Overview:
Shown here is a 33-nucleotide sequence from Halobacillus halophilus, a member of the family "L31-Firmicutes ribosomal protein leader". A reference for the family is Eckert and Weinberg (2020), "Discovery of 20 novel ribosomal leader candidates in bacteria and archaea", BMC Microbiol. The base pairs follow the family's consensus structure, which is taken from published work. Taxonomically the source falls in Halobacillus halophilus (Bacteria, Bacillati, Bacillota, Caryophanales). The sequence is in the family's curated seed alignment. Clan: Ribosomal Protein L31 Leader clan.
RNA sequence: CUCUGUUUCUAAAGGGAUCAGGGCAAAAAGGAG
Number, nucleotide and partner (000 for none) at each position: 001c023002u022003c021004u020005g019006u000007u000008u016009c015010u014011a000012a000013a000014g010015g009016g008017a000018u000019c005020a004021g003022g002023g001024c000025a000026a000027a000028a000029a000030g000031g000032a000033g000